A member of the RNA family "Ruegeria cis2 sRNA" from Pseudodonghicola xiamenensis, 153 nucleotides long.
The family's RNA type in Rfam is small RNA.
Its family is annotated with regulation of gene expression in the Gene Ontology.
A reference for the family is Rivers et al. (2016), "Experimental Identification of Small Non-Coding RNAs in the Model Marine Bacterium Ruegeria pomeroyi DSS-3", Front Microbiol.
[Rfam]
RNA sequence: AUUGGUAUUCAUCGGAUUGUAGUUGAUGAAAACAUAGCCGCGCGCCUGGUCGAUGGUGUGAAACAGCGGGUUCCAGGAAAAGAUCGGCAGCAUGUAGCCGGGCAAGUUGUUGGCCAGGAACAUCUUGCCCGAGGCGAUCAUAUUGGCCCGCUG
Numbered sequence: 001a002u003u004g005g006u007a008u009u010c011a012u013c014g015g016a017u018u019g020u021a022g023u024u025g026a027u028g029a030a031a032a033c034a035u036a037g038c039c040g041c042g043c044g045c046c047u048g049g050u051c052g053a054u055g056g057u058g059u060g061a062a063a064c065a066g067c068g069g070g071u072u073c074c075a076g077g078a079a080a081a082g083a084u085c086g087g088c089a090g091c092a093u094g095u096a097g098c099c100g101g102g103c104a105a106g107u108u109g110u111u112g113g114c115c116a117g118g119a120a121c122a123u124c125u126u127g128c129c130c131g132a133g134g135c136g137a138u139c140a141u142a143u144u145g146g147c148c149c150g151c152u153g
Stems, first nucleotide, its partner, number of pairs: 003034002006032001008030002011027005037057004041052002064153005071081002086147001088145003092141003098134002101130002103127004108122001110119002